The family of this 210-nucleotide RNA from Collimonas fungivorans is "Proteobacterial sRNA psRNA2".
The sequence is in the family's curated seed alignment.
The literature on the family includes a 2010 paper in FEMS Microbiol Lett by Gvakharia et al., "Computational prediction and transcriptional analysis of sRNAs in Nitrosomonas europaea".
RNA sequence: GGGUUACUCCUUGGCGUUUACGCGCUGGUUUAAUAAAGAUUCGCCCCCCUAUCAAACUGGGUAACCCCACCCUUUGGCAAGGCCUUCUGUCCGAUCAAGUCGGAACUACUACACCUGAAGCCAGCCUAUAUCAAUCUGAUUACUACUGUAGUCGUUCGGUGAACGAUUUCAUCAUCAACUGCUAAGUUGACUACUUUGCAUUGCCCGUUA
Numbered sequence: 001g002g003g004u005u006a007c008u009c010c011u012u013g014g015c016g017u018u019u020a021c022g023c024g025c026u027g028g029u030u031u032a033a034u035a036a037a038g039a040u041u042c043g044c045c046c047c048c049c050u051a052u053c054a055a056a057c058u059g060g061g062u063a064a065c066c067c068c069a070c071c072c073u074u075u076g077g078c079a080a081g082g083c084c085u086u087c088u089g090u091c092c093g094a095u096c097a098a099g100u101c102g103g104a105a106c107u108a109c110u111a112c113a114c115c116u117g118a119a120g121c122c123a124g125c126c127u128a129u130a131u132c133a134a135u136c137u138g139a140u141u142a143c144u145a146c147u148g149u150a151g152u153c154g155u156u157c158g159g160u161g162a163a164c165g166a167u168u169u170c171a172u173c174a175u176c177a178a179c180u181g182c183u184a185a186g187u188u189g190a191c192u193a194c195u196u197u198g199c200a201u202u203g204c205c206c207g208u209u210a
Base pairs, nucleotide, nucleotide: 001067002066003065004064005063006062007061009060010059014025015024016023017022027058028057029056030055031054033052034051035050038047069208070207075159077157081153082152084151085150089106090105091103092102093101094100095099108147177202178201181199182198184196185195186194187193